Rfam assigns this 75-nucleotide RNA to the family "L13-Bacteroidia ribosomal protein leader". It is one of the family's seed sequences. It is annotated as a cis-regulatory leader.

[Rfam]
RNA sequence: UGGGGGAAGUCUUAGAACCCCAUGGAUGCCGUGUUAAUAGCGAUGCCUUUGGCCGGGCAUGGCGGUUAGUGAAUC
Numbered sequence: 001u002g003g004g005g006g007a008a009g010u011c012u013u014a015g016a017a018c019c020c021c022a023u024g025g026a027u028g029c030c031g032u033g034u035u036a037a038u039a040g041c042g043a044u045g046c047c048u049u050u051g052g053c054c055g056g057g058c059a060u061g062g063c064g065g066u067u068a069g070u071g072a073a074u075c
Base pairs, nucleotide, nucleotide: 001022002021003020004019005018034069035068036067037066038065040063041062043060044059045058046057047056048055